[Rfam]
RNA sequence: GGAGUAAAUUAUACAGUCGCAUGCUUUUGCAUGAGGAAAGUCCGUGCUCCGUAGAGCAGGGUGCCGGGUAACACCCGGUGAGGGUGACCUCAAGGAUAGUGCAACAGAAAUAGACCGCCGAGCAAUCGGCAAGGAUGGAAAGGUGAGGUAAGAGCUCACCGGCAAUUAGGCGACUAAUUGGCCAUGUAAACCCCACCCGGAGCAAGACCAAAAAAGGACCUUGGAGUGGCUGCUCGUCACAGUCCAAAUGGUAGGUUGCUGGAGCCUGUCGGCAACGUCAGGCGUAGAUAGAUGACUGUUUAAAACAGAACACGGCUUACAUAUUUACUCUAAAC
Number, nucleotide and partner (000 for none) at each position: 001g331002g330003a329004g328005u327006a326007a325008a324009u323010u000011a000012u000013a299014c298015a297016g296017u295018c294019g000020c033021a032022u031023g030024c029025u000026u000027u000028u000029g024030c023031a022032u021033g020034a000035g000036g000037a000038a318039a317040g316041u000042c315043c314044g313045u312046g311047c202048u201049c200050c199051g000052u000053a000054g235055a234056g233057c232058a000059g198060g197061g196062u195063g194064c078065c077066g076067g075068g074069u000070a000071a000072c000073a000074c068075c067076c066077g065078g064079u093080g091081a090082g089083g088084g000085u000086g000087a000088c083089c082090u081091c080092a000093a079094g193095g192096a000097u000098a000099g191100u190101g187102c186103a185104a000105c000106a000107g000108a000109a000110a000111u000112a000113g000114a000115c134116c133117g130118c129119c128120g127121a126122g000123c000124a000125a000126u121127c120128g119129g118130c117131a000132a000133g116134g115135a000136u000137g000138g000139a000140a000141a000142g160143g159144u158145g157146a156147g155148g000149u000150a000151a000152g000153a000154g000155c147156u146157c145158a144159c143160c142161g000162g182163c180164a179165a178166u177167u176168a175169g174170g000171c000172g000173a000174c169175u168176a167177a166178u165179u164180g163181g000182c162183c000184a000185u103186g102187u101188a000189a000190a100191c099192c095193c094194c063195a062196c061197c060198c059199g050200g049201a048202g047203c000204a000205a000206g257207a256208c255209c254210a000211a000212a000213a000214a000215a000216g245217g244218a243219c242220c000221u000222u000223g000224g000225a000226g240227u239228g238229g237230c236231u000232g057233c056234u055235c054236g230237u229238c228239a227240c226241a000242g219243u218244c217245c216246a000247a000248a000249u000250g000251g000252u000253a000254g209255g208256u207257u206258g000259c000260u000261g000262g000263a000264g283265c282266c281267u280268g279269u000270c277271g276272g000273c000274a000275a000276c271277g270278u000279c268280a267281g266282g265283c264284g000285u000286a000287g000288a000289u000290a000291g000292a000293u000294g018295a017296c016297u015298g014299u013300u000301u000302a000303a000304a000305a000306c000307a000308g000309a000310a000311c046312a045313c044314g043315g042316c040317u039318u038319a000320c000321a000322u000323a009324u008325u007326u006327a005328c004329u003330c002331u001332a000333a000334a000335c000